[Rfam]
RNA sequence: ACUUUAUAACUUUGUUGCAAAUGAAAACAAUACAAUUAAAUAACUGGUGGUGGAAAUCUCAUAACUUACGUUAGUGAGACCAUCUUGUUAUAUAUAAAUAAUAACGAAAAAGGCUUAUC
Numbered sequence: 001a002c003u004u005u006a007u008a009a010c011u012u013u014g015u016u017g018c019a020a021a022u023g024a025a026a027a028c029a030a031u032a033c034a035a036u037u038a039a040a041u042a043a044c045u046g047g048u049g050g051u052g053g054a055a056a057u058c059u060c061a062u063a064a065c066u067u068a069c070g071u072u073a074g075u076g077a078g079a080c081c082a083u084c085u086u087g088u089u090a091u092a093u094a095u096a097a098a099u100a101a102u103a104a105c106g107a108a109a110a111a112g113g114c115u116u117a118u119c
Stems, first nucleotide, its partner, number of pairs: 036097003040093003043088002046085002050083003060078001063072003
Notes: Rfam assigns this 119-nucleotide RNA sequence from Tenacibaculum sp. SZ-18 to the family "Bacteroidete tryptophan peptide leader RNA". NCBI's taxonomy places the organism under Bacteria, Bacteroidota, Flavobacteriales, Flavobacteriaceae, Tenacibaculum.